[Rfam]
RNA sequence: ACAUACAUGGUUGAGGCCACAGCAGAAGUGCUCAAAGUGCAGCCCUGUCAUAUUCCAACUAAUCUGUGAAUUCUGCU
Numbered sequence: 001a002c003a004u005a006c007a008u009g010g011u012u013g014a015g016g017c018c019a020c021a022g023c024a025g026a027a028g029u030g031c032u033c034a035a036a037g038u039g040c041a042g043c044c045c046u047g048u049c050a051u052a053u054u055c056c057a058a059c060u061a062a063u064c065u066g067u068g069a070a071u072u073c074u075g076c077u
Stems, first nucleotide, its partner, number of pairs: 013045001015044003021077007028040003049066002052063003
A member of the RNA family "Mammalian CPEB3 ribozyme" from Alligator sinensis, 77 nucleotides long. A reference for the family is Salehi-Ashtiani et al. (2006), "A genomewide search for ribozymes reveals an HDV-like sequence in the human CPEB3 gene", Science. The family's consensus secondary structure is taken from published work. It scores 38 bits against the family's covariance model.